RNA: c-di-AMP riboswitch aptamer (ydaO/yuaA leader)
Organism: Sphaerisporangium melleum
RNA sequence: AUGGCCGCUCCGCCUAAUUUCCGGCCGGCCCCCACCGCCGGAAAACCGGGGACCCAAAGGCAGGCGACGGGGAUGAUCUCCGGCGAUCCCGCCACCCCUGGGGUGAAUCCGAGAGGGAGGCGUCGAAACCUCCAUGUCCAGGUGCUCGGUAGGGCUUCUCCGGCCCGAACCCGUCAGCUAACCCGGUAGGCGACCGAGGAGAGGAGCU
Numbered sequence: 001a002u003g004g005c006c007g008c009u010c011c012g013c014c015u016a017a018u019u020u021c022c023g024g025c026c027g028g029c030c031c032c033c034a035c036c037g038c039c040g041g042a043a044a045a046c047c048g049g050g051g052a053c054c055c056a057a058a059g060g061c062a063g064g065c066g067a068c069g070g071g072g073a074u075g076a077u078c079u080c081c082g083g084c085g086a087u088c089c090c091g092c093c094a095c096c097c098c099u100g101g102g103g104u105g106a107a108u109c110c111g112a113g114a115g116g117g118a119g120g121c122g123u124c125g126a127a128a129c130c131u132c133c134a135u136g137u138c139c140a141g142g143u144g145c146u147c148g149g150u151a152g153g154g155c156u157u158c159u160c161c162g163g164c165c166c167g168a169a170c171c172c173g174u175c176a177g178c179u180a181a182c183c184c185g186g187u188a189g190g191c192g193a194c195c196g197a198g199g200a201g202a203g204g205a206g207c208u
Stems, first nucleotide, its partner, number of pairs: 011192004018044008045187006055100002101172003109149004152166004